[Rfam]
RNA sequence: AAGUAACUCCGAGUCUCGCCGCAGAUGGCGGUGAUAGGAGUAACGGCUGGUUGGCACAGCCAUCGACCUUCCUGUUUGACACGGAGACUGGCUCGUUCGAGCCUCGAGAACAGGUCGUGUCGUAGACCACAAUAUCCCACACCAGCGGCGUGGUGCCGUGGGAAUCCCCGUCCUUCAGGGCGGGGA
Numbered sequence: 001a002a003g004u005a006a007c008u009c010c011g012a013g014u015c016u017c018g019c020c021g022c023a024g025a026u027g028g029c030g031g032u033g034a035u036a037g038g039a040g041u042a043a044c045g046g047c048u049g050g051u052u053g054g055c056a057c058a059g060c061c062a063u064c065g066a067c068c069u070u071c072c073u074g075u076u077u078g079a080c081a082c083g084g085a086g087a088c089u090g091g092c093u094c095g096u097u098c099g100a101g102c103c104u105c106g107a108g109a110a111c112a113g114g115u116c117g118u119g120u121c122g123u124a125g126a127c128c129a130c131a132a133u134a135u136c137c138c139a140c141a142c143c144a145g146c147g148g149c150g151u152g153g154u155g156c157c158g159u160g161g162g163a164a165u166c167c168c169c170g171u172c173c174u175u176c177a178g179g180g181c182g183g184g185g186a
Stems, first nucleotide, its partner, number of pairs: 003044002007040004013035003016031006045061005064122004069117001071114007090103005135163004140158001165186009

The family of this 186-nucleotide RNA from uncultured archaeon A07HR60 is "Sense overlapping transcript RNA 0042 (sot)". By type it is a small RNA. A search with the family's covariance model found it, with a score of 168 bits. The family's consensus secondary structure was predicted with RNAfold. The literature on the family includes a 2015 paper in RNA Biol by Gomes-Filho et al., "Sense overlapping transcripts in IS1341-type transposase genes are functional non-coding RNAs in archaea". Rfam describes the family as follows. It is associated with IS1341-type transposase (tnpB) genes, at the 3'-end in H. salinarum NRC-1. The tetraloop structural motif may be functional.